[Rfam]
Notes: Small nucleolar RNA SNORA74: a 202-nucleotide RNA sequence from Pelusios castaneus. Its Rfam clan is "SNORA74 clan". It is annotated as an H/ACA-box small nucleolar RNA. Pairs were carried over by alignment from the consensus structure, which was predicted with PFOLD. The source organism's lineage runs through Eukaryota, Metazoa, Archelosauria, Testudines and Pelusios.
RNA sequence: UCCAGCGGUUGUCAGCUGCCCAGUGCAGUUCUGUGCCUGUGCUAGUGUUACACUGCUGGGAGAGAAACAUGCCAUCAGAAUUAGCUGGUACUGUGGUACUGUUCUAGUGCCUGUCAGUGCCACGUUUUGGUAGCACUUUGCAUCCUUGAGAGUGGAAUAACUCUUUCCCUGUAGAGUUUGUCCUAGACUGGAUGCAAACACA
Number, nucleotide and partner (000 for none) at each position: 001u060002c059003c058004a057005g056006c055007g054008g053009u052010u000011g051012u050013c000014a000015g046016c045017u044018g043019c000020c041021c039022a038023g037024u000025g000026c000027a000028g000029u000030u000031c000032u000033g000034u000035g000036c000037c023038u022039g021040u000041g020042c000043u018044a017045g016046u015047g000048u000049u000050a012051c011052a009053c008054u007055g006056c005057u004058g003059g002060g001061a000062g000063a000064g000065a000066a000067a000068c000069a000070u135071g134072c133073c000074a131075u130076c129077a128078g000079a000080a000081u000082u000083a126084g125085c124086u000087g123088g120089u119090a118091c117092u116093g115094u000095g110096g000097u109098a108099c107100u106101g000102u000103u000104c000105u000106a100107g099108u098109g097110c095111c000112u000113g000114u000115c093116a092117g091118u090119g089120c088121c000122a000123c087124g085125u084126u083127u000128u077129g076130g075131u074132a000133g072134c071135a070136c000137u000138u197139u196140g195141c194142a193143u192144c191145c190146u000147u000148g000149a000150g000151a000152g000153u000154g183155g182156a181157a000158u000159a178160a177161c176162u175163c174164u173165u000166u000167c000168c000169c000170u000171g000172u000173a164174g163175a162176g161177u160178u159179u000180g000181u156182c155183c154184u000185a000186g000187a000188c000189u000190g145191g144192a143193u142194g141195c140196a139197a138198a000199c000200a000201c000202a000